[Rfam]
RNA sequence: CAGAGGGCCGCGGGAGAGAGCCGCCGCGCGCGGCCGCCGAAGGUGAAAGGUCCCCGGUUUCGGGGCCGAAUCUCUCAGGCAAAAGGACCGCGGCCGGAGG
Number, nucleotide and partner (000 for none) at each position: 001c000002a000003g000004a000005g000006g095007g094008c093009c092010g091011c090012g089013g088014g000015a000016g000017a000018g000019a000020g034021c033022c032023g031024c000025c000026g000027c000028g000029c000030g000031c023032g022033g021034c020035c000036g080037c079038c078039g076040a075041a000042g000043g074044u000045g072046a000047a000048a000049g067050g066051u065052c064053c063054c062055c000056g000057g000058u000059u000060u000061c000062g054063g053064g052065g051066c050067c049068g000069a000070a000071u000072c045073u000074c043075u040076c039077a000078g038079g037080c036081a000082a000083a000084a000085g000086g000087a000088c013089c012090g011091c010092g009093g008094c007095c006096g000097g000098a000099g000100g000

A member of the RNA family "Glycine riboswitch aptamer" from Rubrobacter xylanophilus, 100 nucleotides long.
The match comes from Rfam's covariance-model search (70 bits).
Lineage of the source: Bacteria > Bacillati > Rubrobacteria > Rubrobacteraceae > Rubrobacter xylanophilus.